[Rfam]
RNA: Small nucleolar RNA SNORD47
RNA sequence: AGCCACUGAUGAAAUUGAUUCUGCCAAAUGACCUGCUGUGAUAUUACCCCUUCCGUUCCACUUUGUGCUGAGGUU
Numbered sequence: 001a002g003c004c005a006c007u008g009a010u011g012a013a014a015u016u017g018a019u020u021c022u023g024c025c026a027a028a029u030g031a032c033c034u035g036c037u038g039u040g041a042u043a044u045u046a047c048c049c050c051u052u053c054c055g056u057u058c059c060a061c062u063u064u065g066u067g068c069u070g071a072g073g074u075u
Base pairs, nucleotide, nucleotide: 001075002074003073004072